The family of this 97-nucleotide RNA sequence from Amborella trichopoda is "Plastid-rps12 3UTR RNA". The family has 1,299 seed sequences and 1,710 matches in Rfam 15.1. Plastid rpl20 is a non-coding RNA (ncRNA) recognised in plastids. The literature on the family includes a 2023 paper in Plant Commun by Richter et al., "Retrograde signaling in plants: A critical review focusing on the GUN pathway and beyond".
RNA sequence: GGUUUCCAUUGAUGCAAAUCCAAUCACCUCGAUGUGAGAUGAAAAACAAUUCCACAUCGGUAGCAAACAAGUAUCUAUUAAGGGGGGGAAAUGGUAU
Number, nucleotide and partner (000 for none) at each position: 001g000002g000003u000004u000005u000006c000007c000008a000009u023010u022011g021012a000013u000014g000015c000016a000017a000018a000019u000020c000021c011022a010023a009024u000025c000026a000027c000028c000029u000030c000031g000032a000033u000034g000035u000036g000037a000038g000039a000040u000041g000042a000043a000044a000045a000046a000047c000048a000049a000050u000051u000052c087053c086054a000055c084056a078057u077058c000059g075060g074061u073062a072063g000064c000065a000066a000067a000068c000069a000070a000071g000072u062073a061074u060075c059076u000077a057078u056079u000080a000081a000082g000083g000084g055085g000086g053087g052088g000089a000090a000091a000092u000093g000094g000095u000096a000097u000